Shown here is a 79-nucleotide RNA sequence from Esox lucius, a member of the family "mir-26 microRNA precursor family". The family's consensus secondary structure was predicted with RNAalifold. The family has 82 seed sequences and 2,251 matches in Rfam 15.1. The match comes from Rfam's covariance-model search (66 bits). The literature on the family includes a 2001 paper in Science by Lagos-Quintana et al., "Identification of novel genes coding for small expressed RNAs". Lineage of the source: Eukaryota > Bilateria > Chordata > Esocidae > Esox.

RNA sequence: CAGGGGCCUAGUUCAAGUAAUCCAGGAUAGGCUUGGUGUGAGUUUGGGCCUAGUCUGGACUACUUGUUCUGGGAGCCUG
Numbered sequence: 001c002a003g004g005g006g007c008c009u010a011g012u013u014c015a016a017g018u019a020a021u022c023c024a025g026g027a028u029a030g031g032c033u034u035g036g037u038g039u040g041a042g043u044u045u046g047g048g049c050c051u052a053g054u055c056u057g058g059a060c061u062a063c064u065u066g067u068u069c070u071g072g073g074a075g076c077c078u079g
Stems, first nucleotide, its partner, number of pairs: 002078003007073005014066006021059002024056003028052006